[Rfam]
RNA sequence: UGCAGCCCAGUCAAAUUCGGUCCCUGUCCCGCAGUGUCGGGGACCGGCCACCGGCUGCCACAGCAAGCCCCGUGCUCCGCGUGUCCCCUGUCCCCUGCUGGGACCCGGGGAGGCGGAACCCCACGGACACUG
Number, nucleotide and partner (000 for none) at each position: 001u000002g058003c057004a056005g055006c000007c000008c000009a000010g000011u000012c000013a000014a000015a000016u000017u000018c046019g045020g044021u043022c042023c041024c040025u039026g038027u000028c036029c000030c000031g000032c000033a000034g000035u000036g028037u000038c026039g025040g024041g023042g022043a021044c020045c019046g018047g000048c000049c000050a000051c000052c000053g000054g000055c005056u004057g003058c002059c000060a000061c000062a000063g000064c000065a000066a000067g000068c000069c000070c000071c000072g124073u123074g122075c000076u000077c000078c000079g000080c000081g000082u000083g000084u110085c109086c000087c000088c108089u107090g106091u000092c000093c000094c000095c000096u000097g000098c000099u000100g000101g000102g000103a000104c000105c000106c090107g089108g088109g085110g084111a000112g000113g000114c000115g000116g000117a000118a000119c000120c000121c000122c074123a073124c072125g000126g000127a000128c000129a000130c000131u000132g000
Rfam assigns this 132-nucleotide sequence from Camarhynchus parvulus to the family "Small nucleolar RNA SNORA5".
Pairs were carried over by alignment from the consensus structure, which was predicted with RNAfold.
It is annotated as an H/ACA-box small nucleolar RNA.
About the family: ACA5 is a member of the H/ACA class of snoRNA that guide the sites of modification of uridines to pseudouridines.
Rfam 15.1 lists 2,226 matches to the family in 629 species.
Its family is annotated with RNA processing and nucleolus in the Gene Ontology.
The family is grouped with related families in Rfam's "SNORA5 clan".